[Rfam]
RNA sequence: AGCCGAAUUAAACACGGAUCUGCGAGACGUACUUCAGCUUUCGUGAGAUCCGCCAGUGUUUUGCAAG
Numbered sequence: 001a002g003c004c005g006a007a008u009u010a011a012a013c014a015c016g017g018a019u020c021u022g023c024g025a026g027a028c029g030u031a032c033u034u035c036a037g038c039u040u041u042c043g044u045g046a047g048a049u050c051c052g053c054c055a056g057u058g059u060u061u062u063g064c065a066a067g
Stems, first nucleotide, its partner, number of pairs: 002064002005061004016051004022044002026041002